Small nucleolar RNA SNORA31: a 118-nucleotide sequence from Cricetulus griseus. Rfam links the family to the GO terms nucleolus and RNA processing. NCBI's taxonomy places the organism under Eukaryota, Dipnotetrapodomorpha, Rodentia, Cricetidae, Cricetulus. Pairs were carried over by alignment from the consensus structure, which was predicted with RNAalifold. The literature on the family includes a 2001 paper in EMBO J by Huttenhofer et al., "RNomics: an experimental approach that identifies 201 candidates for novel, small, non-messenger RNAs in mouse". Rfam's curators write: ACA31 (SNORA31) belongs to the H/ACA class of snoRNAs which are thought to guide the sites of modification of uridines to pseudouridines. ACA31 is predicted to guide the pseudouridylation of U3713 in 28S rRNA and U218 in 18S rRNA. This family includes the mouse homologue snoMBI-161.
RNA sequence: CCAUCCACUGACAGACCUUCAACAGUUCUUCUGGUUUGCACUAGGAUGCCAAAGAAAAUGUUCCCGGUGCUUCCUGCCUGUCUUUGUAGCAGUCCAGAUUGAAUUGGGGAGUACAUAU
Number, nucleotide and partner (000 for none) at each position: 001c000002c048003a047004u046005c045006c044007a000008c000009u040010g039011a000012c038013a037014g036015a035016c034017c033018u000019u000020c000021a027022a026023c000024a000025g000026u022027u021028c000029u000030u000031c000032u000033g017034g016035u015036u014037u013038g012039c010040a009041c000042u000043a000044g006045g005046a004047u003048g002049c000050c000051a000052a000053a000054g000055a000056a000057a000058a000059u000060g000061u000062u110063c109064c108065c107066g000067g105068u000069g000070c101071u000072u000073c000074c097075u096076g095077c000078c092079u091080g090081u089082c000083u000084u000085u000086g000087u000088a000089g081090c080091a079092g078093u000094c000095c076096a075097g074098a000099u000100u000101g070102a000103a000104u000105u067106g000107g065108g064109g063110a062111g000112u000113a000114c000115a000116u000117a000118u000